L2-Alphaproteobacteria ribosomal protein leader: a 66-nucleotide sequence.

[Rfam]
RNA sequence: GGCCACCUCCGGGGGGCUUACAUAUCGCAGAGGCACACCUCUGCAUUGCUAAACGGAAGACAGAAA
Numbered sequence: 001g002g003c004c005a006c007c008u009c010c011g012g013g014g015g016g017c018u019u020a021c022a023u024a025u026c027g028c029a030g031a032g033g034c035a036c037a038c039c040u041c042u043g044c045a046u047u048g049c050u051a052a053a054c055g056g057a058a059g060a061c062a063g064a065a066a
Stems, first nucleotide, its partner, number of pairs: 001018004006014003027044007
Rfam classes the family as a cis-regulatory leader.
The literature on the family includes a 2020 paper in BMC Microbiol by Eckert and Weinberg, "Discovery of 20 novel ribosomal leader candidates in bacteria and archaea".